Shown here is an 80-nucleotide sequence from Hermetia illucens, a member of the family "drz-agam-1 ribozyme".
RNA sequence: CUCUUACCAAACCCUAUCUCCACCUCCACGUGGUGACCGCUGGCAGCUCUUUCUUAACAAAAAGCUGCAGGCGGAGAAGG
Dot-bracket structure: ............(((.(.((.(((.......))).........(((((.(((......))).))))).....)).).)))
Overview:
The base pairs follow the family's consensus structure, which is taken from published work.